[Rfam]
RNA sequence: GAUCCCGGAGGCCAACAUCCGCCAGCGCGUUGCGCCCGCGGGUGGGUUUGGU
Numbered sequence: 001g002a003u004c005c006c007g008g009a010g011g012c013c014a015a016c017a018u019c020c021g022c023c024a025g026c027g028c029g030u031u032g033c034g035c036c037c038g039c040g041g042g043u044g045g046g047u048u049u050g051g052u
Base pairs, nucleotide, nucleotide: 016044017043018042019041020040021039022038025035026034027033028032
RNA: ffh sRNA